[Rfam]
RNA: Mammalian CPEB3 ribozyme
Organism: Crocodylus porosus
RNA sequence: CGAUGACCACAGCAGCCAUCGCAGAAGCAUUCGUGUUAUGGCCGUGUCAGAUUCUAAUGAACCUGAAAAUUCUGCU
Numbered sequence: 001c002g003a004u005g006a007c008c009a010c011a012g013c014a015g016c017c018a019u020c021g022c023a024g025a026a027g028c029a030u031u032c033g034u035g036u037u038a039u040g041g042c043c044g045u046g047u048c049a050g051a052u053u054c055u056a057a058u059g060a061a062c063c064u065g066a067a068a069a070u071u072c073u074g075c076u
Base pairs, nucleotide, nucleotide: 013044015042016041017040021075022074023073024072025071026070027039029037048065049064050063052061053060054059